The record is a 72-nucleotide RNA sequence from Crypturellus undulatus, which matches "mir-199 microRNA precursor family" in Rfam. The match comes from Rfam's covariance-model search (69 bits). The family has 83 seed sequences and 1,828 matches in Rfam 15.1. About the family: This family consists of the microRNA (miRNA) precursor mir-199 which appears to be specific to humans. Animal miRNAs are transcribed as ~70nt precursors and subsequently processed by the Dicer enzyme to give a ~22nt product.
RNA sequence: CCCAGUGUUCAGACUACCUGUUCAGGAGCCUGCCGCGUUGUACAGUAGUCUGCACAUUGGUUAUCCCGCUCC
Numbered sequence: 001c002c003c004a005g006u007g008u009u010c011a012g013a014c015u016a017c018c019u020g021u022u023c024a025g026g027a028g029c030c031u032g033c034c035g036c037g038u039u040g041u042a043c044a045g046u047a048g049u050c051u052g053c054a055c056a057u058u059g060g061u062u063a064u065c066c067c068g069c070u071c072c
Stems, first nucleotide, its partner, number of pairs: 002060007010052007018045004023040002
The source organism's lineage runs through Eukaryota, Dinosauria, Coelurosauria, Aves and Crypturellus.